[Rfam]
The record is a 177-nucleotide RNA from Bacillus gobiensis, which matches "Lysine riboswitch aptamer" in Rfam.
Taxonomically the source falls in Bacillus (Bacteria, Bacillati, Bacilli, Caryophanales).
The match comes from Rfam's covariance-model search (104 bits).
Riboswitches are metabolite binding domains within certain messenger RNAs that serve as precision sensors for their corresponding targets. Allosteric rearrangement of mRNA structure is mediated by ligand binding, and this results in modulation of gene expression.
RNA sequence: UGGUGAGGUAGAGGUUGCAUGGAUGAUUAGUCGUAUGCUUCGAGACUUGUGAGGUUGAUGAAAGCAUAUAAAAGGCAUCCGUGCCGAAGCAUGAAGAUUUCACAGGUUUUUGUGCUGGGUCUGUACCUGAAAAAGGGCAGGACUGCCGCGGUUACGGUGCGGAGAGCUAUCCGGAGG
Numbered sequence: 001u002g003g004u005g006a007g008g009u010a011g012a013g014g015u016u017g018c019a020u021g022g023a024u025g026a027u028u029a030g031u032c033g034u035a036u037g038c039u040u041c042g043a044g045a046c047u048u049g050u051g052a053g054g055u056u057g058a059u060g061a062a063a064g065c066a067u068a069u070a071a072a073a074g075g076c077a078u079c080c081g082u083g084c085c086g087a088a089g090c091a092u093g094a095a096g097a098u099u100u101c102a103c104a105g106g107u108u109u110u111u112g113u114g115c116u117g118g119g120u121c122u123g124u125a126c127c128u129g130a131a132a133a134a135g136g137g138c139a140g141g142a143c144u145g146c147c148g149c150g151g152u153u154a155c156g157g158u159g160c161g162g163a164g165a166g167c168u169a170u171c172c173g174g175a176g177g
Stems, first nucleotide, its partner, number of pairs: 007171005017084009033069008088116012117144002120141005126135001146162005
Dot-bracket structure: ......(((((.....(((((((((.......((((((((.....................))))))))......)))))))))...((((((((((((.....))))))))))))((.(((((.(........).))))).)).(((((.......)))))....)))))......